[Rfam]
RNA sequence: GUACCCGAUUAAUCUGUUCUUUUUUGACUUCUUUUUUCUCCACUAGGCUUGGAGGCUUCUUCGUUUUCGAAAGAAAAGUCAAAAACGAACGGAAAGCCUCCCAAUGGGAGGUUUUUUUAU
Number, nucleotide and partner (000 for none) at each position: 001g000002u000003a000004c000005c000006c000007g000008a000009u000010u000011a000012a000013u000014c000015u000016g090017u089018u088019c087020u000021u085022u084023u083024u082025u081026g080027a079028c078029u077030u076031c000032u074033u073034u072035u000036u070037u069038c000039u053040c052041c051042a050043c000044u000045a000046g000047g000048c000049u000050u042051g041052g040053a039054g065055g064056c063057u000058u000059c000060u000061u000062c000063g056064u055065u054066u000067u000068c000069g037070a036071a000072a034073g033074a032075a000076a030077a029078g028079u027080c026081a025082a024083a023084a022085a021086c000087g019088a018089a017090c016091g000092g000093a000094a114095a113096g112097c111098c110099u109100c108101c107102c106103a000104a000105u000106g102107g101108g100109a099110g098111g097112u096113u095114u094115u000116u000117u000118u000119a000120u000